[Rfam]
RNA sequence: CCUACAGCGGUUAUUGGCAUUCUGCCCACCUCCAACCCUUCCUCUCUCAUGGCGCCAAGAGCAUCAAAGAUAUGGAGGUGGGCAGCCUGCCAACCGACCUCUGUUGG
Numbered sequence: 001c002c003u004a005c006a007g008c009g010g011u012u013a014u015u016g017g018c019a020u021u022c023u024g025c026c027c028a029c030c031u032c033c034a035a036c037c038c039u040u041c042c043u044c045u046c047u048c049a050u051g052g053c054g055c056c057a058a059g060a061g062c063a064u065c066a067a068a069g070a071u072a073u074g075g076a077g078g079u080g081g082g083c084a085g086c087c088u089g090c091c092a093a094c095c096g097a098c099c100u101c102u103g104u105u106g107g
Stems, first nucleotide, its partner, number of pairs: 011097001014093006023084011
RNA: MIR394 microRNA precursor family
Organism: Ensete ventricosum